[Rfam]
RNA sequence: GGGCUCUUGGCACAGUUGGUAGCGCGCACGCUUCGCAUAAUGAUUGCGUGAGGUCGUGGGUUCAAUUCCCACAGUGUCCA
Numbered sequence: 001g002g003g004c005u006c007u008u009g010g011c012a013c014a015g016u017u018g019g020u021a022g023c024g025c026g027c028a029c030g031c032u033u034c035g036c037a038u039a040a041u042g043a044u045u046g047c048g049u050g051a052g053g054u055c056g057u058g059g060g061u062u063c064a065a066u067u068c069c070c071a072c073a074g075u076g077u078c079c080a
Base pairs, nucleotide, nucleotide: 001079002078003077004076006074007073010025011024013022027050028049029048030047031046056072057071058070059069060068
Dot-bracket structure: ((((.((..((.(........).)).(((((..............))))).....(((((.......))))))).)))).